About this RNA
A member of the RNA family "S10-Clostridia ribosomal protein leader" from Pseudobutyrivibrio xylanivorans, 86 nucleotides long. A search with the family's covariance model found it, with a score of 92 bits. Pairs were carried over by alignment from the consensus structure, which is taken from published work.
[Rfam]
RNA sequence: UGAUAGCUAUGAAGCGUGAGGUUGCAACCUAGUUACUCAGGUUGGUUUUCCGUGGAGCGAAUGUCAAGUUAGGAAACUGACGACAA
Numbered sequence: 001u002g003a004u005a006g007c008u009a010u011g012a013a014g015c016g017u018g019a020g021g022u023u024g025c026a027a028c029c030u031a032g033u034u035a036c037u038c039a040g041g042u043u044g045g046u047u048u049u050c051c052g053u054g055g056a057g058c059g060a061a062u063g064u065c066a067a068g069u070u071a072g073g074a075a076a077c078u079g080a081c082g083a084c085a086a
Stems, first nucleotide, its partner, number of pairs: 014053003018050004025044005062085004068081004